Annotation
Shown here is a 69-nucleotide RNA sequence from Pelusios castaneus, a member of the family "mir-33 microRNA precursor family". Its family is annotated with gene silencing by miRNA and RISC complex in the Gene Ontology.

[Rfam]
RNA sequence: CUGUGGUGCAUUGUAGUUGCAUUGCAUGUUCUGGCAGUAGUGGUGCAAUGUUUCUGCAGUGCAGCACAG
Numbered sequence: 001c002u003g004u005g006g007u008g009c010a011u012u013g014u015a016g017u018u019g020c021a022u023u024g025c026a027u028g029u030u031c032u033g034g035c036a037g038u039a040g041u042g043g044u045g046c047a048a049u050g051u052u053u054c055u056g057c058a059g060u061g062c063a064g065c066a067c068a069g
Base pairs, nucleotide, nucleotide: 001069002068003067004066006065007063008062009061010060011059012058013057014056015055016054019051021049022048023047024046025045026044027043

The match comes from Rfam's covariance-model search (81 bits).